[Rfam]
RNA sequence: ACAAAACAUAUGCCUAAUCCAAUUUUGAUACACGUUGGAACGGGGGAACCAAUGAUUUGGGGUGAAACCGCGCAUGCGCGGUCGGGCGUCUUUCGACCGAACCCGUCAGCUAACCUCGUCGGCAGAUAAGAGAGGGAAU
Numbered sequence: 001a002c003a004a005a006a007c008a009u010a011u012g013c014c015u016a017a018u019c020c021a022a023u024u025u026u027g028a029u030a031c032a033c034g035u036u037g038g039a040a041c042g043g044g045g046g047a048a049c050c051a052a053u054g055a056u057u058u059g060g061g062g063u064g065a066a067a068c069c070g071c072g073c074a075u076g077c078g079c080g081g082u083c084g085g086g087c088g089u090c091u092u093u094c095g096a097c098c099g100a101a102c103c104c105g106u107c108a109g110c111u112a113a114c115c116u117c118g119u120c121g122g123c124a125g126a127u128a129a130g131a132g133a134g135g136g137a138a139u
Base pairs, nucleotide, nucleotide: 011124012123013122014121018039019038020037021036022035023034040119041118042117043116044115045114050059051058060104061103062102068081069080070079071078084098085097087095
RNA: c-di-AMP riboswitch aptamer (ydaO/yuaA leader)